[Rfam]
The family of this 265-nucleotide sequence from Allolucifera butyrica is "raiA RNA". By type it is a riboswitch. Lineage of the source: Bacteria > Bacillati > Bacillota > Negativicutes > Allolucifera.
RNA sequence: UUUGCUUAGGUCUGUGGUUGAAAAUCGAUGCCAGUCGCAGGCGAAACGAUCCACGUAAGGAGUCCAAAGCGGCUUUGAGCAUGGUGCGGCUUAGAGGUAAGACCUGCCGGAUGGAGAUAUGAGGCGCAAUGGUAGUGGCCGGGAUAACAGCCGGCGUCUAGUAUUGCCCUGAAUCCGAGAGGGGCGGUAGUGAGGGGAUUAGCUUUCUAGUAGCGAAACCUCCCGCAGGCGAGUGUGGGGGCAAAGACCAGGUCGGCUAAGCAAU
Number, nucleotide and partner (000 for none) at each position: 001u000002u264003u263004g262005c261006u260007u259008a258009g257010g000011u000012c256013u255014g254015u250016g249017g248018u247019u246020g000021a000022a000023a000024a000025u000026c000027g000028a236029u235030g234031c041032c000033a091034g090035u089036c088037g087038c086039a085040g000041g031042c000043g000044a000045a000046a000047c000048g000049a000050u084051c083052c000053a000054c000055g000056u000057a000058a076059g075060g074061a000062g073063u072064c071065c000066a000067a000068a000069g000070c000071g064072g063073c062074u060075u059076u058077g000078a000079g000080c000081a000082u243083g051084g050085u039086g038087c037088g036089g035090c034091u033092u000093a000094g000095a000096g000097g000098u000099a000100a000101g000102a000103c229104c228105u227106g226107c225108c177109g176110g175111a174112u173113g000114g000115a000116g000117a000118u000119a000120u000121g000122a000123g000124g000125c000126g000127c000128a000129a000130u000131g000132g000133u000134a000135g000136u000137g000138g000139c000140c000141g000142g000143g000144a000145u000146a000147a000148c000149a000150g000151c000152c000153g000154g000155c000156g000157u000158c000159u000160a000161g000162u000163a000164u000165u000166g000167c000168c000169c000170u000171g000172a000173a112174u111175c110176c109177g108178a000179g000180a000181g222182g221183g220184g219185c000186g000187g000188u000189a000190g214191u213192g000193a000194g000195g000196g207197g206198a205199u000200u000201a000202g000203c000204u000205u198206u197207c196208u000209a000210g000211u000212a000213g191214c190215g000216a000217a000218a000219c184220c183221u182222c181223c000224c000225g107226c106227a105228g104229g103230c000231g000232a000233g000234u030235g029236u028237g000238g000239g000240g000241g000242c000243a082244a000245a000246g019247a018248c017249c016250a015251g000252g000253u000254c014255g013256g012257c009258u008259a007260a006261g005262c004263a003264a002265u000